The family of this 91-nucleotide RNA sequence from Streptomyces apricus is "Streptomyces RNA 3202". For this family Rfam cites "Deep sequencing-based identification of small non-coding RNAs in Streptomyces coelicolor" (Vockenhuber et al., RNA Biol, 2011). A search with the family's covariance model found it, with a score of 72 bits. NCBI's taxonomy places the organism under Bacteria, Bacillati, Actinomycetota, Kitasatosporales, Streptomyces. Pairs were carried over by alignment from the consensus structure. Identified by deep sequencing of transcriptome at the end of exponential growth phase.
RNA sequence: CCGAGUCCCGACGCACUCCCCCCGGUGCCGGGACUCUUCCAGAGCCGAGCUCCGGCGCCUCCCCCCCCUGGCGCCGGAGCUCGGCUUCGUC
Number, nucleotide and partner (000 for none) at each position: 001c000002c000003g000004a000005g034006u033007c032008c031009c030010g029011a000012c027013g026014c025015a000016c000017u000018c000019c000020c000021c000022c000023c000024g000025g014026u013027g012028c000029c010030g009031g008032g007033a006034c005035u000036c000037u000038u000039c000040c000041a000042g087043a086044g085045c084046c083047g082048a081049g080050c079051u078052c000053c076054g075055g074056c073057g072058c071059c070060u000061c000062c000063c000064c000065c000066c000067c000068c000069u000070g059071g058072c057073g056074c055075c054076g053077g000078a051079g050080c049081u048082c047083g046084g045085c044086u043087u042088c000089g000090u000091c000